[Rfam]
RNA sequence: CCUUCCCCACAACCUCGACGCGAUGCAACAUUCUGCCGCAAUGUUGUCCGACCUGCAGUGUCCGUCGAGCCCACGGGAAGG
Dot-bracket structure: (((((((........(((((......((((((.......))))))....(((.......)))))))).......)))))))
The family of this 81-nucleotide sequence from Rachicladosporium sp. CCFEE 5018 is "bZIP non canonical Hac1/Xbp1 intron". The source organism's lineage runs through Eukaryota, Opisthokonta, saccharomyceta, dothideomyceta and Rachicladosporium. Rfam describes the family as follows. bZIP intron RNA is a non-canonical intron that was first reported in HAC1 gene in yeast and XBP1 gene in Metazoa. It scores 41 bits against the family's covariance model. The family's consensus secondary structure was predicted with RNAfold. It is annotated as a small RNA. For this family Rfam cites "Conserved RNA structures in the non-canonical Hac1/Xbp1 intron" (Hooks and Griffiths-Jones, RNA Biol, 2011).